[Rfam]
RNA: Small nucleolar RNA Z221/R21b
RNA sequence: UGGCUGUGAUGAGAUGCUUUGAAGUCAUGCACCACUCUGAUUAUUCAGCGAUGAGAAGCUUCAUACCCAAUUUGCUCUGAGCCG
Numbered sequence: 001u002g003g004c005u006g007u008g009a010u011g012a013g014a015u016g017c018u019u020u021g022a023a024g025u026c027a028u029g030c031a032c033c034a035c036u037c038u039g040a041u042u043a044u045u046c047a048g049c050g051a052u053g054a055g056a057a058g059c060u061u062c063a064u065a066c067c068c069a070a071u072u073u074g075c076u077c078u079g080a081g082c083c084g
Stems, first nucleotide, its partner, number of pairs: 001084004
Dot-bracket structure: ((((............................................................................))))